[Rfam]
RNA sequence: UACAGAAAAAGGCAAACCUGCUGAAAAGCUGGGACGCAAAGCUAACGGGUCUAAGGCAAGUAGAGAGAGAAAUUGCUACGACGGCUGAGCCGCCUGA
Numbered sequence: 001u002a003c004a005g006a007a008a009a010a011g012g013c014a015a016a017c018c019u020g021c022u023g024a025a026a027a028g029c030u031g032g033g034a035c036g037c038a039a040a041g042c043u044a045a046c047g048g049g050u051c052u053a054a055g056g057c058a059a060g061u062a063g064a065g066a067g068a069g070a071a072a073u074u075g076c077u078a079c080g081a082c083g084g085c086u087g088a089g090c091c092g093c094c095u096g097a
Stems, first nucleotide, its partner, number of pairs: 012037002017032002020029003041090003046087003049082003056076004
c-di-GMP-I riboswitch aptamer: a 97-nucleotide RNA sequence from Jeotgalibacillus sp. R-1-5s-1. Rfam's curators write: GEMM was predicted in a large-scale screen for bacterial structured RNA regulatory elements. It scores 70 bits against the family's covariance model.